[Rfam]
RNA: Small nucleolar RNA snoR2/U65
RNA sequence: AGCCUUCUUGCCACGGUCAUGGUAGCCCUGUGCAGUGACCUUGACUGCUCACAGUUGUGCUGAGAUCGACCCUUCACCUCCUGAUAGGAAGCUUCCUGGCCGACCAAUGCCAGAGCAAGUGCCAAUACGGGUGAUCACAUAC
Number, nucleotide and partner (000 for none) at each position: 001a000002g060003c059004c057005u000006u000007c054008u053009u051010g000011c000012c000013a000014c047015g046016g045017u044018c043019a042020u000021g040022g039023u038024a000025g033026c032027c000028c000029u000030g000031u000032g026033c025034a000035g000036u000037g000038a023039c022040c021041u000042u019043g018044a017045c016046u015047g014048c000049u000050c000051a009052c000053a008054g007055u000056u000057g004058u000059g003060c002061u000062g000063a000064g000065a000066u000067c000068g000069a000070c000071c000072c000073u000074u134075c133076a132077c131078c130079u000080c000081c000082u000083g000084a000085u000086a000087g123088g122089a000090a000091g000092c119093u118094u117095c000096c113097u112098g111099g110100c109101c000102g000103a000104c000105c000106a000107a000108u000109g100110c099111c098112a097113g096114a000115g000116c000117a094118a093119g092120u000121g000122c088123c087124a000125a000126u000127a000128c000129g000130g078131g077132u076133g075134a074135u000136c000137a000138c000139a000140u000141a000142c000